[Rfam]
RNA sequence: GGAUCACCGGCGGGAGAGUCCUCGGGAACAACCGGGGCGCCGAAGGAGCAAGUACCCCGCACACUCUCAGGCAACGGGAACCGCCGGGGUGAG
Numbered sequence: 001g002g003a004u005c006a007c008c009g010g011c012g013g014g015a016g017a018g019u020c021c022u023c024g025g026g027a028a029c030a031a032c033c034g035g036g037g038c039g040c041c042g043a044a045g046g047a048g049c050a051a052g053u054a055c056c057c058c059g060c061a062c063a064c065u066c067u068c069a070g071g072c073a074a075c076g077g078g079a080a081c082c083g084c085c086g087g088g089g090u091g092a093g
Stems, first nucleotide, its partner, number of pairs: 007087007020037004039072003042068002046066003052060002
Rfam assigns this 93-nucleotide RNA sequence from Actinosynnema mirum to the family "Glycine riboswitch aptamer". Rfam's curators write: This family represents the bacterial glycine riboswitch.